[Rfam]
RNA sequence: CUGCGGCGCCGAUGUCCUCGGCGCCGUAGUUUUAGCCGGAAACCGGGCUCAAAAAGCUCGGAAUUCGCCUUGAAAUCGAUGACCAGCAGGGGCAUCCGGGCUGGUACCCGGACUAUCUGCGGGGCCCGUGGUGGCUUGGUCGAGUCGCUGCCUCAGCACUCAGGCAAGUCAUGCUGCGGUUUCCACGCCGGUGGUGUCCCCUUAUAGAGGGUGACCA
Dot-bracket structure: ((((((((((((.....)))))))))))).........(((.(((.(((.....))).)))..))).....................(((((((((((((......))))))(((((.(((.((.((..(((((((((....((((.........).)))....)))).).))))..))...)).))).))))))).)))))...............
Numbered sequence: 001c002u003g004c005g006g007c008g009c010c011g012a013u014g015u016c017c018u019c020g021g022c023g024c025c026g027u028a029g030u031u032u033u034a035g036c037c038g039g040a041a042a043c044c045g046g047g048c049u050c051a052a053a054a055a056g057c058u059c060g061g062a063a064u065u066c067g068c069c070u071u072g073a074a075a076u077c078g079a080u081g082a083c084c085a086g087c088a089g090g091g092g093c094a095u096c097c098g099g100g101c102u103g104g105u106a107c108c109c110g111g112a113c114u115a116u117c118u119g120c121g122g123g124g125c126c127c128g129u130g131g132u133g134g135c136u137u138g139g140u141c142g143a144g145u146c147g148c149u150g151c152c153u154c155a156g157c158a159c160u161c162a163g164g165c166a167a168g169u170c171a172u173g174c175u176g177c178g179g180u181u182u183c184c185a186c187g188c189c190g191g192u193g194g195u196g197u198c199c200c201c202u203u204a205u206a207g208a209g210g211g212u213g214a215c216c217a
Stems, first nucleotide, its partner, number of pairs: 001029012039066003043061003047057003088202005093196002095112006113194005119188003123184002126179002130175004134170001135168004143160003146156001
This 217-nucleotide RNA from Stutzerimonas nosocomialis belongs to the Rfam family "sucA-II RNA". By type it is a cis-regulatory element.